RNA sequence: CAGUACCACUGUCGAUAUCAAUGGUUUUAUUGUUGAUAUCUCUGUCGCCCAGCAGACCCUCGCAGGGUGAUAGAACCUCUUCUACACGUCGACAAGAAAUAUUCUUGUAUUUGCCAGAUGUUGAUGAAAUAUCUGGCUUUUUUUAUA
Numbered sequence: 001c002a003g004u005a006c007c008a009c010u011g012u013c014g015a016u017a018u019c020a021a022u023g024g025u026u027u028u029a030u031u032g033u034u035g036a037u038a039u040c041u042c043u044g045u046c047g048c049c050c051a052g053c054a055g056a057c058c059c060u061c062g063c064a065g066g067g068u069g070a071u072a073g074a075a076c077c078u079c080u081u082c083u084a085c086a087c088g089u090c091g092a093c094a095a096g097a098a099a100u101a102u103u104c105u106u107g108u109a110u111u112u113g114c115c116a117g118a119u120g121u122u123g124a125u126g127a128a129a130u131a132u133c134u135g136g137c138u139u140u141u142u143u144u145a146u147a
Base pairs, nucleotide, nucleotide: 014040015039016038017037018036019035020034021033022032023031024030025029048067049066050065052063053062092108093107094106095105096104097103113137114136115135116134117133118132119131
Shown here is a 147-nucleotide RNA sequence from Vibrio renipiscarius, a member of the family "Vibrio RNA VqmR". On this family, see Papenfort et al., Proc Natl Acad Sci U S A 2015: "Differential RNA-seq of Vibrio cholerae identifies the VqmR small RNA as a regulator of biofilm formation". Gene Ontology terms of the family: negative regulation of single-species biofilm formation, mRNA binding and sRNA-mediated gene silencing. It is annotated as a small RNA. From the family's description: Repress the expression of multiple mRNAs including the rtx (repeats in toxin) toxin genes and the vpsT, which is required for biofilm formation. In fact, VqmR which is highly conserved in vibrionaceae, was shown to strongly inhibit biofilm formation through the repression of vpsT gene and could be the link between biofilm formation and quorum sensing.